[Rfam]
RNA sequence: GCCCUUUCCAUGAUGAAGUAUUUCGGAUGUAAACACAGACCUGUUCCAAGAGCGCAAAACCGUGUGGAUAUUUCCGUUGCCUUCCUUCUGAUAUUCAAGC
Numbered sequence: 001g002c003c004c005u006u007u008c009c010a011u012g013a014u015g016a017a018g019u020a021u022u023u024c025g026g027a028u029g030u031a032a033a034c035a036c037a038g039a040c041c042u043g044u045u046c047c048a049a050g051a052g053c054g055c056a057a058a059a060c061c062g063u064g065u066g067g068a069u070a071u072u073u074c075c076g077u078u079g080c081c082u083u084c085c086u087u088c089u090g091a092u093a094u095u096c097a098a099g100c
Stems, first nucleotide, its partner, number of pairs: 003099001005097001024076004
The record is a 100-nucleotide RNA sequence from Talaromyces marneffei, which matches "Small nucleolar RNA Z13/snr52" in Rfam. Lineage of the source: Eukaryota > Opisthokonta > Pezizomycotina > Trichocomaceae > Talaromyces marneffei. Rfam links the family to the GO terms RNA processing and nucleolus. The family's consensus secondary structure was predicted with PFOLD. It is one of the family's seed sequences. Rfam classes the family as a C/D-box small nucleolar RNA.